About this RNA: This 200-nucleotide sequence from Alphabaculovirus adhonmai belongs to the Rfam family "Baculoviridae Nucleocapsid Assembly essential Element". The family's RNA type in Rfam is cis-regulatory element. For this family Rfam cites "The Autographa californica Multiple Nucleopolyhedrovirus ac83 Gene Contains a cis-Acting Element That Is Essential for Nucleocapsid Assembly" (Huang et al., J Virol, 2017). It scores 128 bits against the family's covariance model. Rfam's curators write: Internal cis-element within the ac83 gene. The family's consensus secondary structure was predicted with RNAfold. Taxonomically the source falls in Alphabaculovirus adhonmai (Viruses, Naldaviricetes, Baculoviridae, Alphabaculovirus). Its family is annotated with viral capsid assembly in the Gene Ontology.
RNA sequence: CUUUUUAGGACGCGUAUAUUGACCAAUAUACUACGAUCCGACGUUUGCGGACUUAUUUUGGCACAAAUGCACCAUAAAUAUACUACGAUUGACACCAAAUAUACUCCAAUAUACGUUCAAUAUACGUACGAACGCGAAAAAGUGCCAAAAAAUAUUGUAGUAUAUCCGUCAAAUAUAACGGAAAAAAACGCUACAAUUGU
Numbered sequence: 001c002u003u004u005u006u007a008g009g010a011c012g013c014g015u016a017u018a019u020u021g022a023c024c025a026a027u028a029u030a031c032u033a034c035g036a037u038c039c040g041a042c043g044u045u046u047g048c049g050g051a052c053u054u055a056u057u058u059u060g061g062c063a064c065a066a067a068u069g070c071a072c073c074a075u076a077a078a079u080a081u082a083c084u085a086c087g088a089u090u091g092a093c094a095c096c097a098a099a100u101a102u103a104c105u106c107c108a109a110u111a112u113a114c115g116u117u118c119a120a121u122a123u124a125c126g127u128a129c130g131a132a133c134g135c136g137a138a139a140a141a142g143u144g145c146c147a148a149a150a151a152a153u154a155u156u157g158u159a160g161u162a163u164a165u166c167c168g169u170c171a172a173a174u175a176u177a178a179c180g181g182a183a184a185a186a187a188a189c190g191c192u193a194c195a196a197u198u199g200u
Base pairs, nucleotide, nucleotide: 008192009191014031015030016029017028018027019026020025037051038050039049040048042047135180136179144170146168152163153162154161155160